[Rfam]
Nucleotides: 087
Stems, first nucleotide, its partner, number of pairs: 003085003007081005013075005019069017037051005
Number, partner (000 for none) and nucleotide at each position: 001000c002000u003085a004084c005083u006000c007081c008080c009079u010078c011077c012000g013075u014074c015073c016072c017071a018000u019069a020068a021067u022066a023065u024064a025063a026062g027061a028060g029059c030058g031057u032056u033055u034054u035053u036000u037051a038050c039049g040048c041047u042000a043000c044000a045000u046000u047041a048040g049039u050038g051037u052000c053035a054034a055033a056032a057031a058030c059029g060028c061027u062026c063025u064024u065023a066022u067021a068020u069019u070000g071017u072016g073015g074014g075013a076000c077011g078010g079009a080008g081007g082000g083005a084004g085003u086000a087000a